The family of this 383-nucleotide part of an RNA is "Bacterial small subunit ribosomal RNA". The family's consensus secondary structure is taken from published work. A search with the family's covariance model found it, with a score of 577 bits.

RNA sequence: AUCUUUAACAGGUAUAUAGGGUACCUAGACGGUGUGCAAUGGCUUAAAUAAGUACCUGGUACACUUGAGUUUGAUAUGUGAGAGGAAUAUGUCGGAAUUGUUGGAGGAAAGAUGAAAUUUGUUAAUACCAAUAGGACUGAUAACGGCGAAGGCAAACCUCUAUGUACAUGUACUUGCUAUUUCUGUUUUUAUUAGAGCAAAAUAGCAAUGUACUAUAACUGACGUUGAGGGACGAAGGCUCAGAGAGUGAAGAGGAUUAGAUACCCCCGUAACCUGGGCAGACAAUGAUGAGUGCCAUAGGUUGGCUUUAAGGCGGAACUAUAAAUGAAAGUGGAAGCACUCCACCUCAAGAGUAAUGUGGCAACGCAGGAACUGAAAUCAUU
Numbered sequence: 001a002u003c004u005u006u007a008a009c010a011g012g013u014a015u016a017u018a019g020g021g022u023a024c025c026u027a028g029a030c031g032g033u034g035u036g037c038a039a040u041g042g043c044u045u046a047a048a049u050a051a052g053u054a055c056c057u058g059g060u061a062c063a064c065u066u067g068a069g070u071u072u073g074a075u076a077u078g079u080g081a082g083a084g085g086a087a088u089a090u091g092u093c094g095g096a097a098u099u100g101u102u103g104g105a106g107g108a109a110a111g112a113u114g115a116a117a118u119u120u121g122u123u124a125a126u127a128c129c130a131a132u133a134g135g136a137c138u139g140a141u142a143a144c145g146g147c148g149a150a151g152g153c154a155a156a157c158c159u160c161u162a163u164g165u166a167c168a169u170g171u172a173c174u175u176g177c178u179a180u181u182u183c184u185g186u187u188u189u190u191a192u193u194a195g196a197g198c199a200a201a202a203u204a205g206c207a208a209u210g211u212a213c214u215a216u217a218a219c220u221g222a223c224g225u226u227g228a229g230g231g232a233c234g235a236a237g238g239c240u241c242a243g244a245g246a247g248u249g250a251a252g253a254g255g256a257u258u259a260g261a262u263a264c265c266c267c268c269g270u271a272a273c274c275u276g277g278g279c280a281g282a283c284a285a286u287g288a289u290g291a292g293u294g295c296c297a298u299a300g301g302u303u304g305g306c307u308u309u310a311a312g313g314c315g316g317a318a319c320u321a322u323a324a325a326u327g328a329a330a331g332u333g334g335a336a337g338c339a340c341u342c343c344a345c346c347u348c349a350a351g352a353g354u355a356a357u358g359u360g361g362c363a364a365c366g367c368a369g370g371a372a373c374u375g376a377a378a379u380c381a382u383u
Base pairs, nucleotide, nucleotide: 011346012345013344019343021233022232024230026227028226029225030224032064033063034062035061036060037059041056042053043052044051045050068220069219070218072215073214075212076211094138095137098134099133100132101131102130103129104128109120110119111118146206147205238279239278240277241276242275243274247273248272252268254266255265290342291341292340293339294338295337298321299320300319302317303316305314306313307312325332326331348375349374357368358367359366360365